[Rfam]
Record summary:
A member of the RNA family "DUF3800-V RNA", 97 nucleotides long. Pairs were carried over by alignment from the consensus structure, which is taken from published work. Rfam's curators put it in the seed alignment.
RNA sequence: UUUUGUGAGCGGUAAGUCCUAUCUGGGUGCCUGCGGUGUUCCCCUCCAUGGAGGGCAUGAGCCGCGGGGUCACGAACCCGGAGGGCACGCUCGUCAA
Dot-bracket structure: ((......((............((((((.((((((((....(((((....))))).....)))))))......)).))))).......)).....))